[Rfam]
RNA: Plastid-rps12 3UTR RNA
Organism: Durio zibethinus
RNA sequence: GGUUUCCAUUGGCGCAAAUCCAAUCUUGGAAUUUUUAAAAAAUUCCCCAUUGGUAGCAAAUGCUUAUCCAUUAAGCGGGGAAAAUCCUAUU
Numbered sequence: 001g002g003u004u005u006c007c008a009u010u011g012g013c014g015c016a017a018a019u020c021c022a023a024u025c026u027u028g029g030a031a032u033u034u035u036u037a038a039a040a041a042a043u044u045c046c047c048c049a050u051u052g053g054u055a056g057c058a059a060a061u062g063c064u065u066a067u068c069c070a071u072u073a074a075g076c077g078g079g080g081a082a083a084a085u086c087c088u089a090u091u
Stems, first nucleotide, its partner, number of pairs: 009023004045080004049071002052068005